The family of this 78-nucleotide RNA sequence from Methylomonas sp. LWB is "c-di-GMP-I riboswitch aptamer".
Pairs were carried over by alignment from the consensus structure, which is taken from published work.
The match comes from Rfam's covariance-model search (59 bits).

[Rfam]
RNA sequence: UUGAGCGCUAGCCAAACCUGUCGCGAGGCAGGGCCGGAAAGCCACGGGUCUUGUAGGCAAGAUAGCCGGGUUGCUGUG
Numbered sequence: 001u002u003g004a005g006c007g008c009u010a011g012c013c014a015a016a017c018c019u020g021u022c023g024c025g026a027g028g029c030a031g032g033g034c035c036g037g038a039a040a041g042c043c044a045c046g047g048g049u050c051u052u053g054u055a056g057g058c059a060a061g062a063u064a065g066c067c068g069g070g071u072u073g074c075u076g077u078g
Stems, first nucleotide, its partner, number of pairs: 012037002017032006040072004045068003048063006